[Rfam]
RNA sequence: AUGCUAUGAUGGCUGCAUAGUUCAGCAGAUUGAGUCAUGAAGAGAUUUACCAAUUGUCUGAUGUAUCU
Numbered sequence: 001a002u003g004c005u006a007u008g009a010u011g012g013c014u015g016c017a018u019a020g021u022u023c024a025g026c027a028g029a030u031u032g033a034g035u036c037a038u039g040a041a042g043a044g045a046u047u048u049a050c051c052a053a054u055u056g057u058c059u060g061a062u063g064u065a066u067c068u
Base pairs, nucleotide, nucleotide: 001066002065003064004063006038007037008036009035010034013028014027015026016025043055044054046052
Small nucleolar RNA SNORD77: a 68-nucleotide RNA from Propithecus coquereli. For this family Rfam cites "Guide RNAs with 5' caps and novel box C/D snoRNA-like domains for modification of snRNAs in metazoa" (Tycowski et al., Curr Biol, 2004). Rfam links the family to the GO terms nucleolus and RNA processing. From the family's description: U77 belongs to the C/D family of snoRNAs. The family is grouped with related families in Rfam's "SNORD77 clan". Lineage of the source: Eukaryota > Bilateria > Chordata > Euarchontoglires > Propithecus.